Rfam assigns this 44-nucleotide RNA from Pelobacter propionicus to the family "Moco-II RNA". Pairs were carried over by alignment from the consensus structure, which is taken from published work.
RNA sequence: GCGCUCACUUCGUCCUCUGCCCCGGCAGACCACACGAAACCCGC
Numbered sequence: 001g002c003g004c005u006c007a008c009u010u011c012g013u014c015c016u017c018u019g020c021c022c023c024g025g026c027a028g029a030c031c032a033c034a035c036g037a038a039a040c041c042c043g044c
Stems, first nucleotide, its partner, number of pairs: 010037004016029005
The source organism's lineage runs through Bacteria, Thermodesulfobacteriota, Desulfuromonadia, Desulfuromonadales and Pelobacter propionicus.